[Rfam]
RNA sequence: CUAGCACUUUCACAGGUCCUCGCCUAGGCAGUGUGGCCAGGUUUUGGUAGCUGGUACUGAAAUUGACAACCCUUGAUUAUAUCCUUGCCCUGGGACUGUGUCAGUGGCGACUGUCAAUCAAUGGGACGGGA
Numbered sequence: 001c002u003a004g005c006a007c008u009u010u011c012a013c014a015g016g017u018c019c020u021c022g023c024c025u026a027g028g029c030a031g032u033g034u035g036g037c038c039a040g041g042u043u044u045u046g047g048u049a050g051c052u053g054g055u056a057c058u059g060a061a062a063u064u065g066a067c068a069a070c071c072c073u074u075g076a077u078u079a080u081a082u083c084c085u086u087g088c089c090c091u092g093g094g095a096c097u098g099u100g101u102c103a104g105u106g107g108c109g110a111c112u113g114u115c116a117a118u119c120a121a122u123g124g125g126a127c128g129g130g131a
Base pairs, nucleotide, nucleotide: 003058004057006055007054008053013046014045015044018041019040020039023035025033070125071124072123073121074120075119076118078116081114082113085110086109087108088107089106090104091103092102093101

Shown here is a 131-nucleotide sequence from Bos indicus, a member of the family "Small nucleolar RNA SNORA30/SNORA37 family". The match comes from Rfam's covariance-model search (95 bits). Rfam describes the family as follows. The members of this family belong to the H/ACA class of snoRNAs that guide the sites of modification of uridines to pseudouridines. This family includes human ACA30 (SNORA30), ACA37 (SNORA37) and the mouse homolog MBI-26. Both ACA37 and ACA30 are predicted to guide the pseudouridylation of residue U4643 of 28S rRNA. The family's RNA type in Rfam is H/ACA-box small nucleolar RNA. The family has 11 seed sequences and 407 matches in Rfam 15.1.